Shown here is a 92-nucleotide RNA sequence from Paracoccus sp. 228, a member of the family "Rhodo-rpoB RNA".
A search with the family's covariance model found it, with a score of 69 bits.
The family's consensus secondary structure is taken from published work.

RNA sequence: GGUUCGGGAGCCGCGCGGUGGGACGCGUGGCACGAAUGGAACCUCACCCCUGCAUUCGUAGGUGCGUUCCGGGGGCCCCGACCCGGACGCGC
Numbered sequence: 001g002g003u004u005c006g007g008g009a010g011c012c013g014c015g016c017g018g019u020g021g022g023a024c025g026c027g028u029g030g031c032a033c034g035a036a037u038g039g040a041a042c043c044u045c046a047c048c049c050c051u052g053c054a055u056u057c058g059u060a061g062g063u064g065c066g067u068u069c070c071g072g073g074g075g076c077c078c079c080g081a082c083c084c085g086g087a088c089g090c091g092c
Base pairs, nucleotide, nucleotide: 001043002042003041004040005039010031011030012029013028014027015026016025017024064092065091066090067089069086070085071084072083073082